This 47-nucleotide RNA from Kolteria novifilia belongs to the Rfam family "Acido-Lenti-1 RNA".

[Rfam]
RNA sequence: CCCACGGCUCACGCCGUAGGCUACGUGAUGCCGUCACUUUCGUGACU
Numbered sequence: 001c002c003c004a005c006g007g008c009u010c011a012c013g014c015c016g017u018a019g020g021c022u023a024c025g026u027g028a029u030g031c032c033g034u035c036a037c038u039u040u041c042g043u044g045a046c047u
Base pairs, nucleotide, nucleotide: 001020002019004017005016006015007014008013033046034045035044036043037042

The base pairs follow the family's consensus structure, which is taken from published work.
The match comes from Rfam's covariance-model search (40 bits).